This 311-nucleotide sequence from Synaphobranchus kaupii belongs to the Rfam family "Nuclear RNase P". By type it is a ribozyme. Lineage of the source: Eukaryota > Neopterygii > Elopocephalai > Anguilliformes > Synaphobranchus. The base pairs follow the family's consensus structure, which is taken from published work. Rfam describes the family as follows. Ribonuclease P (RNase P) is a ubiquitous endoribonuclease, found in archaea, bacteria and eukarya as well as chloroplasts and mitochondria.
RNA sequence: GCUGGACGGAAGCUUACUGUAGAGGUCACGUGCAGAGUGCUAGUCACUCCUACAAGCACCUCGGGGAAGGUCUGAGAAACGAGCCAAUAGCUACCCUAGCAGGGUAUCACCUGAUGCGGGUGAGCGAGUGCACAGAAAUAUGGGCCAAUGGCGAGUGAUCACUGCAGGAGAAGCCGAUCACAGCACAAUUACAAGUGCUCUUCGGUGGAUGCAAUCUCGCUGGCUUGGAAACACUCGCGGCUGGCGUAUGAGUGCGAUGUGUAAGCUGGGAAACACUUCCAGAACCCAAUUCAGACUACUCUCCAUCCAGU
Numbered sequence: 001g002c003u004g005g006a007c008g009g010a011a012g013c014u015u016a017c018u019g020u021a022g023a024g025g026u027c028a029c030g031u032g033c034a035g036a037g038u039g040c041u042a043g044u045c046a047c048u049c050c051u052a053c054a055a056g057c058a059c060c061u062c063g064g065g066g067a068a069g070g071u072c073u074g075a076g077a078a079a080c081g082a083g084c085c086a087a088u089a090g091c092u093a094c095c096c097u098a099g100c101a102g103g104g105u106a107u108c109a110c111c112u113g114a115u116g117c118g119g120g121u122g123a124g125c126g127a128g129u130g131c132a133c134a135g136a137a138a139u140a141u142g143g144g145c146c147a148a149u150g151g152c153g154a155g156u157g158a159u160c161a162c163u164g165c166a167g168g169a170g171a172a173g174c175c176g177a178u179c180a181c182a183g184c185a186c187a188a189u190u191a192c193a194a195g196u197g198c199u200c201u202u203c204g205g206u207g208g209a210u211g212c213a214a215u216c217u218c219g220c221u222g223g224c225u226u227g228g229a230a231a232c233a234c235u236c237g238c239g240g241c242u243g244g245c246g247u248a249u250g251a252g253u254g255c256g257a258u259g260u261g262u263a264a265g266c267u268g269g270g271a272a273a274c275a276c277u278u279c280c281a282g283a284a285c286c287c288a289a290u291u292c293a294g295a296c297u298a299c300u301c302u303c304c305a306u307c308c309a310g311u
Stems, first nucleotide, its partner, number of pairs: 001311004008304003013265005022062004035049005072294005082242004092106005107123006124238007144224003266282006